[Rfam]
A member of the RNA family "mir-2774 microRNA precursor family" from Bombyx mori, 67 nucleotides long. The source organism's lineage runs through Eukaryota, Allotriocarida, Obtectomera, Bombycoidea and Bombyx. On this family, see Liu et al., BMC Genomics 2010: "MicroRNAs of Bombyx mori identified by Solexa sequencing". Pairs were carried over by alignment from the consensus structure, which was predicted with RNAalifold. It scores 68 bits against the family's covariance model.
RNA sequence: ACACCAUUGGGACCGUCGGUCUACCGAGCAAUAUCACCCGCUCGAUAGAAGAUGUUCUCUCCGUUGU
Number, nucleotide and partner (000 for none) at each position: 001a000002c000003a000004c000005c063006a000007u000008u000009g000010g058011g057012a056013c000014c000015g053016u052017c051018g000019g000020u049021c048022u047023a046024c000025c044026g043027a042028g041029c040030a000031a000032u000033a000034u000035c000036a000037c000038c000039c000040g029041c028042u027043c026044g025045a000046u023047a022048g021049a020050a000051g017052a016053u015054g000055u000056u012057c011058u010059c000060u000061c000062c000063g005064u000065u000066g000067u000